Description: A member of the RNA family "Guanidine-I riboswitch aptamer" from Devosia sp. Root413D1, 113 nucleotides long. The base pairs follow the family's consensus structure.
[Rfam]
RNA sequence: AGAGUUAGGAGCUAGGGUUCCGGCGCCAUCUUUUCCGGCGCGUCUGGUCCGAGAGCACCCACCGGAGCGGGAGACAUCCCUCCGGGACACGGCGGGACAAAAGCCCGGGAGAC
Numbered sequence: 001a002g003a004g005u006u007a008g009g010a011g012c013u014a015g016g017g018u019u020c021c022g023g024c025g026c027c028a029u030c031u032u033u034u035c036c037g038g039c040g041c042g043u044c045u046g047g048u049c050c051g052a053g054a055g056c057a058c059c060c061a062c063c064g065g066a067g068c069g070g071g072a073g074a075c076a077u078c079c080c081u082c083c084g085g086g087a088c089a090c091g092g093c094g095g096g097a098c099a100a101a102a103g104c105c106c107g108g109g110a111g112a113c
Base pairs, nucleotide, nucleotide: 008059009058011056012055015050016049020047021046022044023041024040025039026038027037062085063084064083065082066081067080088108090111094106095105096104